[Rfam]
A member of the RNA family "F6 TB sRNA" from Pseudonocardia endophytica, 57 nucleotides long. Lineage of the source: Bacteria > Bacillati > Actinomycetes > Pseudonocardiales > Pseudonocardia. The match comes from Rfam's covariance-model search (51 bits). The family's RNA type in Rfam is small RNA. The family has 16 seed sequences and 310 matches in Rfam 15.1.
RNA sequence: UGGUGAGCCCCGCGGCGAGUCCGGACCCCCGACCUGGAUUCACCGCGGGGCUGUCCU
Number, nucleotide and partner (000 for none) at each position: 001u000002g056003g055004u000005g000006a000007g051008c050009c049010c048011c047012g046013c045014g044015g043016c000017g041018a040019g039020u038021c037022c036023g000024g000025a000026c000027c000028c000029c000030c000031g000032a000033c000034c000035u000036g022037g021038a020039u019040u018041c017042a000043c015044c014045g013046c012047g011048g010049g009050g008051c007052u000053g000054u000055c003056c002057u000